[Rfam]
RNA: Small nucleolar RNA U61
RNA sequence: UGGCGAUGAGGAAAGAAAUUCGUGUGCCGGAGGCGUCCGCUGGACGCCGGUGUUGGUUCCACAAAUCCUCUAAGAAGUUCUGAGCCA
Number, nucleotide and partner (000 for none) at each position: 001u087002g086003g085004c084005g000006a000007u000008g000009a000010g000011g000012a000013a000014a000015g000016a000017a000018a000019u000020u000021c000022g000023u000024g000025u000026g000027c000028c000029g000030g000031a000032g000033g000034c000035g000036u000037c000038c000039g000040c000041u000042g000043g000044a000045c000046g000047c000048c000049g000050g000051u000052g000053u000054u000055g000056g000057u000058u000059c000060c000061a000062c000063a000064a000065a000066u000067c000068c000069u000070c000071u000072a000073a000074g000075a000076a000077g000078u000079u000080c000081u000082g000083a000084g004085c003086c002087a001